Source information: tRNA: a 71-nucleotide RNA from Thermaurantimonas aggregans.
RNA sequence: GGUUCUGUGGCCGAGGGGCUAGGCAGAGGUCUGCAAAACCUCCUACACCGGUUCGAAUCCGGUCGGAACCU
Number, nucleotide and partner (000 for none) at each position: 001g070002g069003u068004u067005c066006u065007g064008u000009g000010g024011c023012c022013g000014a000015g000016g000017g000018g000019c000020u000021a000022g012023g011024c010025a000026g042027a041028g040029g039030u038031c000032u000033g000034c000035a000036a000037a000038a030039c029040c028041u027042c026043c000044u000045a000046c000047a063048c062049c061050g060051g059052u000053u000054c000055g000056a000057a000058u000059c051060c050061g049062g048063u047064c007065g006066g005067a004068a003069c002070c001071u000
Pairs were carried over by alignment from the consensus structure, which is taken from published work. Taxonomically the source falls in Thermaurantimonas (Bacteria, Pseudomonadati, Flavobacteriia, Schleiferiaceae). Transfer RNA (tRNA) molecules are approximately 80 nucleotides in length. Their secondary structure includes four short double-helical elements and three loops (D, anti-codon, and T loops). Further hydrogen bonds mediate the characteristic L-shaped molecular structure. tRNAs have two regions of fundamental functional importance: the anti-codon, which is responsible for specific mRNA codon recognition, and the 3' end, to which the tRNAs corresponding amino acid is attached (by aminoacyl-tRNA synthetases). tRNAs cope with the degeneracy of the genetic code in two manners: having more than one tRNA (with a specific anti-codon) for a particular amino acid; and 'wobble' base-pairing, i.e. permitting non-standard base-pairing at the 3rd anti-codon position.